[Rfam]
RNA sequence: CAACUAAGAAGGCCGAAGCUUCUUGAAGCACGGGGGACCCAUCCUUUGGGGUGAAGCCGCUUAAGCGGCCGGGUGAUUACUCUUUGACCCGAAUCCGACAGCUAACCUCGCAGGCCGCAAAAGGAGAGGAU
Numbered sequence: 001c002a003a004c005u006a007a008g009a010a011g012g013c014c015g016a017a018g019c020u021u022c023u024u025g026a027a028g029c030a031c032g033g034g035g036g037a038c039c040c041a042u043c044c045u046u047u048g049g050g051g052u053g054a055a056g057c058c059g060c061u062u063a064a065g066c067g068g069c070c071g072g073g074u075g076a077u078u079a080c081u082c083u084u085u086g087a088c089c090c091g092a093a094u095c096c097g098a099c100a101g102c103u104a105a106c107c108u109c110g111c112a113g114g115c116c117g118c119a120a121a122a123g124g125a126g127a128g129g130a131u
Stems, first nucleotide, its partner, number of pairs: 011116004018029003031110005040048002049096003057068004071090004